The family of this 115-nucleotide sequence from Streptomyces sp. ICBB 8177 is "Streptomyces-metK RNA". The base pairs follow the family's consensus structure, which is taken from published work. The source organism's lineage runs through Bacteria, Bacillati, Actinomycetota, Actinomycetes and Streptomyces. It scores 91 bits against the family's covariance model.
[Rfam]
RNA sequence: CCGAGACACGGUGUCCGUCCGCUCGACACGACCGUUAAACUGGCCGUGGUCCGACGGGCGCAGCCCCGAGUUCGGACUUCUCCUAUCAGCCAGCAGCCGCUGCAACCCCAGGGAG
Numbered sequence: 001c002c003g004a005g006a007c008a009c010g011g012u013g014u015c016c017g018u019c020c021g022c023u024c025g026a027c028a029c030g031a032c033c034g035u036u037a038a039a040c041u042g043g044c045c046g047u048g049g050u051c052c053g054a055c056g057g058g059c060g061c062a063g064c065c066c067c068g069a070g071u072u073c074g075g076a077c078u079u080c081u082c083c084u085a086u087c088a089g090c091c092a093g094c095a096g097c098c099g100c101u102g103c104a105a106c107c108c109c110a111g112g113g114a115g
Stems, first nucleotide, its partner, number of pairs: 049077006057067002091102004